[Rfam]
RNA sequence: GGACUUCGCAUGGCGCGUAUCCCAUGAACUCCCCCAGGGCAGGAAUGCAGCAAGGGUCAGUGGGCUCUAGCGGGUGUGCGGAGUCCCCUUU
Numbered sequence: 001g002g003a004c005u006u007c008g009c010a011u012g013g014c015g016c017g018u019a020u021c022c023c024a025u026g027a028a029c030u031c032c033c034c035c036a037g038g039g040c041a042g043g044a045a046u047g048c049a050g051c052a053a054g055g056g057u058c059a060g061u062g063g064g065c066u067c068u069a070g071c072g073g074g075u076g077u078g079c080g081g082a083g084u085c086c087c088c089u090u091u
Base pairs, nucleotide, nucleotide: 001086002085003084004083005082006081007080008079009078010077011074014072015071016070021064022063023062024061025060031056032055033054039048040047041046
Notes: Rfam assigns this 91-nucleotide sequence from Corynebacterium diphtheriae to the family "Bacterial small signal recognition particle RNA". It is annotated as a non-coding RNA gene. The organism belongs to Corynebacterium, within Bacteria. About the family: The signal recognition particle (SRP) is a universally conserved ribonucleoprotein involved in the co-translational targeting of proteins to membranes. It is one of the family's seed sequences.